[Rfam]
RNA: MIR394 microRNA precursor family
RNA sequence: CUCACAGAGUUCCUUGGCAUUCUGUCCACCUCCCCUUUUCUUUUUUAUCAAAACCCACAACUGUAGUAGGAAAAAGGUGAGAGGGAAGAGUUUUUCUGUGGGUGUAAUUAGGGUGUGGAUGUAGUUUGGAGUAGAAAAGAAAAAUAAGAUAGAGAAGGUGGUUUUUUUUCUGAAAAUUGAUGUAGGGUGGAGGUGGGCAUACUGCCAGUGGAGCUCUGUUGG
Numbered sequence: 001c002u003c004a005c006a007g008a009g010u011u012c013c014u015u016g017g018c019a020u021u022c023u024g025u026c027c028a029c030c031u032c033c034c035c036u037u038u039u040c041u042u043u044u045u046u047a048u049c050a051a052a053a054c055c056c057a058c059a060a061c062u063g064u065a066g067u068a069g070g071a072a073a074a075a076g077g078u079g080a081g082a083g084g085g086a087a088g089a090g091u092u093u094u095u096c097u098g099u100g101g102g103u104g105u106a107a108u109u110a111g112g113g114u115g116u117g118g119a120u121g122u123a124g125u126u127u128g129g130a131g132u133a134g135a136a137a138a139g140a141a142a143a144a145u146a147a148g149a150u151a152g153a154g155a156a157g158g159u160g161g162u163u164u165u166u167u168u169u170c171u172g173a174a175a176a177u178u179g180a181u182g183u184a185g186g187g188u189g190g191a192g193g194u195g196g197g198c199a200u201a202c203u204g205c206c207a208g209u210g211g212a213g214c215u216c217u218g219u220u221g222g
Stems, first nucleotide, its partner, number of pairs: 011212001014208006023199011